Rfam assigns this 173-nucleotide sequence from Paenibacillus foliorum to the family "Group II catalytic intron D1-D4-3". The pairing is the family consensus, mapped onto this sequence. Taxonomically the source falls in Paenibacillus (Bacteria, Bacillota, Caryophanales, Paenibacillaceae). A search with the family's covariance model found it, with a score of 114 bits.
RNA sequence: UCCAUCGUGAGAUGGAAUCUGAAGGAAGCAGGAGGCUAACUUCCGGUCCGAGGAACACGAACAUCAUCAGGCACAAGGAACGGAAUGAGCUUUGCAAGACAAAGCGAAGUCCAAUACACUACACGGACAUUCAAGUGUAAAUAGUGCGGGUAGAUGGAAGGAAGGUGAGUCGU
Numbered sequence: 001u002c003c004a005u006c007g008u009g010a011g012a013u014g015g016a017a018u019c020u021g022a023a024g025g026a027a028g029c030a031g032g033a034g035g036c037u038a039a040c041u042u043c044c045g046g047u048c049c050g051a052g053g054a055a056c057a058c059g060a061a062c063a064u065c066a067u068c069a070g071g072c073a074c075a076a077g078g079a080a081c082g083g084a085a086u087g088a089g090c091u092u093u094g095c096a097a098g099a100c101a102a103a104g105c106g107a108a109g110u111c112c113a114a115u116a117c118a119c120u121a122c123a124c125g126g127a128c129a130u131u132c133a134a135g136u137g138u139a140a141a142u143a144g145u146g147c148g149g150g151u152a153g154a155u156g157g158a159a160g161g162a163a164g165g166u167g168a169g170u171c172g173u
Stems, first nucleotide, its partner, number of pairs: 001016006028173002031170001035166002040160006046151005062146003066142001071138003078132003082128001083112001085110002089105003093102001